Description:
The family of this 84-nucleotide RNA sequence from Lynx pardinus is "GA-cis RNA". The base pairs follow the family's consensus structure, which is taken from published work.
RNA sequence: GUUAGGAGAAAACGUAUAUAAUGAAGUUACAUUUCCCGAUUGUCUUCUAUGAUGUCCCCCCCAAAAAAGGGGAGGCUACUCGUU
Numbered sequence: 001g002u003u004a005g006g007a008g009a010a011a012a013c014g015u016a017u018a019u020a021a022u023g024a025a026g027u028u029a030c031a032u033u034u035c036c037c038g039a040u041u042g043u044c045u046u047c048u049a050u051g052a053u054g055u056c057c058c059c060c061c062c063a064a065a066a067a068a069g070g071g072g073a074g075g076c077u078a079c080u081c082g083u084u
Stems, first nucleotide, its partner, number of pairs: 008047003012043002016032002019029003056074001058072001060070002